[Rfam]
RNA sequence: AUUUCCAUCCUCCAAGAGGUCUGAUUUUAAC
Numbered sequence: 001a002u003u004u005c006c007a008u009c010c011u012c013c014a015a016g017a018g019g020u021c022u023g024a025u026u027u028u029a030a031c
Stems, first nucleotide, its partner, number of pairs: 009019004
A member of the RNA family "CRISPR RNA direct repeat element" from Methanocaldococcus jannaschii, 31 nucleotides long.